RNase MRP: a 273-nucleotide RNA sequence from Auriculariales sp. MPI-PUGE-AT-0066. NCBI's taxonomy places the organism under Eukaryota, Opisthokonta, Dikarya, Agaricomycetes, Auriculariales. On this family, see Schmitt et al., FASEB J 1993: "Secondary structure of RNase MRP RNA as predicted by phylogenetic comparison". The family's RNA type in Rfam is ribozyme. Rfam 15.1 lists 3,510 matches to the family in 2,315 species.
RNA sequence: AGGUCGGGUGGAGUAUUGCAAUUGCAGCAAAACGUACAGCGCAUUUUAAUUGUUGCGCAUUCAACUGCUGCAGGGAAAGUCCCCGGAGAAAAUAUCAGUGCAAGAGCACAUGGCUGGCAAUAGCCCAACACUACAAUGUUUAACCCCACUGCAAAGAAACGAGCAGGGCUUGGGUAAAGCUAGUAAUGUAAAAUUCUCAUCUUGUCAAGGUUGAAGCAAUGCAAUGGCGCAGAAUCUGUUGCGCAACAAAAUGGGGCUUACUCCUGCCUGACC
Numbered sequence: 001a002g003g004u005c006g007g008g009u010g011g012a013g014u015a016u017u018g019c020a021a022u023u024g025c026a027g028c029a030a031a032a033c034g035u036a037c038a039g040c041g042c043a044u045u046u047u048a049a050u051u052g053u054u055g056c057g058c059a060u061u062c063a064a065c066u067g068c069u070g071c072a073g074g075g076a077a078a079g080u081c082c083c084c085g086g087a088g089a090a091a092a093u094a095u096c097a098g099u100g101c102a103a104g105a106g107c108a109c110a111u112g113g114c115u116g117g118c119a120a121u122a123g124c125c126c127a128a129c130a131c132u133a134c135a136a137u138g139u140u141u142a143a144c145c146c147c148a149c150u151g152c153a154a155a156g157a158a159a160c161g162a163g164c165a166g167g168g169c170u171u172g173g174g175u176a177a178a179g180c181u182a183g184u185a186a187u188g189u190a191a192a193a194u195u196c197u198c199a200u201c202u203u204g205u206c207a208a209g210g211u212u213g214a215a216g217c218a219a220u221g222c223a224a225u226g227g228c229g230c231a232g233a234a235u236c237u238g239u240u241g242c243g244c245a246a247c248a249a250a251a252u253g254g255g256g257c258u259u260a261c262u263c264c265u266g267c268c269u270g271a272c273c
Stems, first nucleotide, its partner, number of pairs: 002273010014226006022073007039058005045052001077259003081256004098109003112125005128189003135181001139178003145174004149166004228243005